[Rfam]
RNA sequence: GAAGGUAGGCCUUUCGGAGUCGCUAUUCAGGUAGCUAUUCAGGUAGAGGCUUCAAACCACCUUAAGCUGCUGUGGUCAAAAGCUAUGGUGGUGAGCGUUAAGGAAGUGGAAUGAUGU
Numbered sequence: 001g002a003a004g005g006u007a008g009g010c011c012u013u014u015c016g017g018a019g020u021c022g023c024u025a026u027u028c029a030g031g032u033a034g035c036u037a038u039u040c041a042g043g044u045a046g047a048g049g050c051u052u053c054a055a056a057c058c059a060c061c062u063u064a065a066g067c068u069g070c071u072g073u074g075g076u077c078a079a080a081a082g083c084u085a086u087g088g089u090g091g092u093g094a095g096c097g098u099u100a101a102g103g104a105a106g107u108g109g110a111a112u113g114a115u116g117u
Base pairs, nucleotide, nucleotide: 001015002014003013004012005011016053017052018051019050020049021048023046024045025044026043060103061102062101063100064099065098066092067091069089070088071087073085074084075083076082
About this RNA
Rfam assigns this 117-nucleotide sequence from Caminicella sporogenes to the family "Group II catalytic intron D1-D4-2". The match comes from Rfam's covariance-model search (77 bits). The source organism's lineage runs through Bacteria, Bacillati, Clostridia, Caminicella and Caminicella sporogenes. On this family, see Chu et al., EMBO J 2001: "Control of branch-site choice by a group II intron".